Shown here is a 100-nucleotide RNA sequence from Zea mays, a member of the family "Small nucleolar RNA Z118/Z121/Z120".
[Rfam]
RNA sequence: UAUUUGCUAUGAGGACUCCUAUUAGGACGGUAUCUUAAGGGUAUGGCUUAGUUCAACCCUUCUGAUUAUACCAAAACUGAAUUUGGUUUCUGAGCAAAUC
Numbered sequence: 001u002a003u004u005u006g007c008u009a010u011g012a013g014g015a016c017u018c019c020u021a022u023u024a025g026g027a028c029g030g031u032a033u034c035u036u037a038a039g040g041g042u043a044u045g046g047c048u049u050a051g052u053u054c055a056a057c058c059c060u061u062c063u064g065a066u067u068a069u070a071c072c073a074a075a076a077c078u079g080a081a082u083u084u085g086g087u088u089u090c091u092g093a094g095c096a097a098a099u100c
Base pairs, nucleotide, nucleotide: 002099003098004097005096006095007094038061039059040058041057042056
NCBI's taxonomy places the organism under Eukaryota, Embryophyta, Tracheophyta, Poaceae, Zea. It scores 66 bits against the family's covariance model. Gene Ontology terms of the family: nucleolus and RNA processing. Rfam 15.1 lists 435 matches to the family in 31 species. A reference for the family is Chen et al. (2003), "The high diversity of snoRNAs in plants: identification and comparative study of 120 snoRNA genes from Oryza sativa", Nucleic Acids Res.